Rfam assigns this 198-nucleotide RNA from Enterococcus sp. NBRC 3427 to the family "T-box leader". The literature on the family includes a 2000 paper in RNA by Grundy et al., "tRNA determinants for transcription antitermination of the Bacillus subtilis tyrS gene". The family's consensus secondary structure is taken from published work.
RNA sequence: UAAGAUUUGUUGAACAAGAGAGUACUUGUAUCAUUCUUGGCUAGCGAAUUCGGAAGUGGUGGAAGCCGAAUGAAGGAGAUACAACGAAGCGCACUUGGAGAAUUCUGUUUUAAACAGACGGUCGUCUACCGAUAUCAGAUGGAGCUGGUCCUUUUUUAGGACAAUUGGAGUGGUACCGCGGGAAAUCUCGUCUCUAAU
Numbered sequence: 001u002a003a004g005a006u007u008u009g010u011u012g013a014a015c016a017a018g019a020g021a022g023u024a025c026u027u028g029u030a031u032c033a034u035u036c037u038u039g040g041c042u043a044g045c046g047a048a049u050u051c052g053g054a055a056g057u058g059g060u061g062g063a064a065g066c067c068g069a070a071u072g073a074a075g076g077a078g079a080u081a082c083a084a085c086g087a088a089g090c091g092c093a094c095u096u097g098g099a100g101a102a103u104u105c106u107g108u109u110u111u112a113a114a115c116a117g118a119c120g121g122u123c124g125u126c127u128a129c130c131g132a133u134a135u136c137a138g139a140u141g142g143a144g145c146u147g148g149u150c151c152u153u154u155u156u157u158a159g160g161a162c163a164a165u166u167g168g169a170g171u172g173g174u175a176c177c178g179c180g181g182g183a184a185a186u187c188u189c190g191u192c193u194c195u196a197a198u
Stems, first nucleotide, its partner, number of pairs: 007102002015097004026084005037074002048071006105117005119131003148162005167195004178191005